The family of this 544-nucleotide part of an RNA from Spirosoma linguale is "Bacterial large subunit ribosomal RNA". Taxonomically the source falls in Spirosoma linguale (Bacteria, Pseudomonadati, Cytophagia, Spirosoma). The family's consensus secondary structure is taken from published work.
[Rfam]
RNA sequence: AGCAAAAGGGCGUCUGGGGGAUGCCUAAGGCUUCUGAUGGCGAUGAAGGACGUGGCAAGCGACGAAACGCUUAGGGGACCCGCUGGCAGGGGCUGAUCCUAAGGUGUCCGAAUGGGGCAACCCAUCAUGUUGAAGACAUGAUACCCUACGGGGGGCAAACGCGGAGAACUGAAACAUCUAAGUACCCGCAGGAAGAGAAAACAAUUGUGAUUCCCUGAGUAGUGGCGAGCGAACGGGGAACAGCCCAAACCAGCUACGUUACGGCGUAGCCGGGGUUGUAGGACCCGACAUCAAAUCAACAAUCGAACGGAAAGCGCGUGGGAAAGCGCACCAGAGAGGGUGAGAGUCCCGUACCGGUCAGGGCGUUGGUGGGUUGGGGAUCCUGAGUAGGGGGGAACCGGAGAAAUUCCCUCUGAAUUUGCCGGCACCAUCCGGUAAGGCUAAAUACAAUCAGAAGACCGAUAGCGCAGAGUACCGUGAGGGAAAGGUGAAAAGUACGGGGAGUACCCGGGUGAAAUAGAACCUGAAACCAGGCGCUUACAAG
Numbered sequence: 001a002g003c004a005a006a007a008g009g010g011c012g013u014c015u016g017g018g019g020g021a022u023g024c025c026u027a028a029g030g031c032u033u034c035u036g037a038u039g040g041c042g043a044u045g046a047a048g049g050a051c052g053u054g055g056c057a058a059g060c061g062a063c064g065a066a067a068c069g070c071u072u073a074g075g076g077g078a079c080c081c082g083c084u085g086g087c088a089g090g091g092g093c094u095g096a097u098c099c100u101a102a103g104g105u106g107u108c109c110g111a112a113u114g115g116g117g118c119a120a121c122c123c124a125u126c127a128u129g130u131u132g133a134a135g136a137c138a139u140g141a142u143a144c145c146c147u148a149c150g151g152g153g154g155g156c157a158a159a160c161g162c163g164g165a166g167a168a169c170u171g172a173a174a175c176a177u178c179u180a181a182g183u184a185c186c187c188g189c190a191g192g193a194a195g196a197g198a199a200a201a202c203a204a205u206u207g208u209g210a211u212u213c214c215c216u217g218a219g220u221a222g223u224g225g226c227g228a229g230c231g232a233a234c235g236g237g238g239a240a241c242a243g244c245c246c247a248a249a250c251c252a253g254c255u256a257c258g259u260u261a262c263g264g265c266g267u268a269g270c271c272g273g274g275g276u277u278g279u280a281g282g283a284c285c286c287g288a289c290a291u292c293a294a295a296u297c298a299a300c301a302a303u304c305g306a307a308c309g310g311a312a313a314g315c316g317c318g319u320g321g322g323a324a325a326g327c328g329c330a331c332c333a334g335a336g337a338g339g340g341u342g343a344g345a346g347u348c349c350c351g352u353a354c355c356g357g358u359c360a361g362g363g364c365g366u367u368g369g370u371g372g373g374u375u376g377g378g379g380a381u382c383c384u385g386a387g388u389a390g391g392g393g394g395g396a397a398c399c400g401g402a403g404a405a406a407u408u409c410c411c412u413c414u415g416a417a418u419u420u421g422c423c424g425g426c427a428c429c430a431u432c433c434g435g436u437a438a439g440g441c442u443a444a445a446u447a448c449a450a451u452c453a454g455a456a457g458a459c460c461g462a463u464a465g466c467g468c469a470g471a472g473u474a475c476c477g478u479g480a481g482g483g484a485a486a487g488g489u490g491a492a493a494a495g496u497a498c499g500g501g502g503a504g505u506a507c508c509c510g511g512g513u514g515a516a517a518u519a520g521a522a523c524c525u526g527a528a529a530c531c532a533g534g535c536g537c538u539u540a541c542a543a544g
Base pairs, nucleotide, nucleotide: 008539009538010537011536012535013534014533015532016531017530023524024488025487029460030459031457032456033455034454035453036452037451038449039448040156041155048109049108050107051064052063053062070103071102072101073100074099075098076097079091080090081089114123115122116121124142125141126140127139128138129137130136144153145152146151160191161189162188163187164186171178172177201208202207211445212239213238214237215236216235222230223229242442243441244440245439250273251272253270254269255268256267280384281383282382284378285377286376287375288374295370296369297368298367299366300365303362304361308356309355310354314329315328316327317326332336338350339349340348390414391413392412393411394410395409396408397407421436422435423434424433425432475482476481498510499509500508501507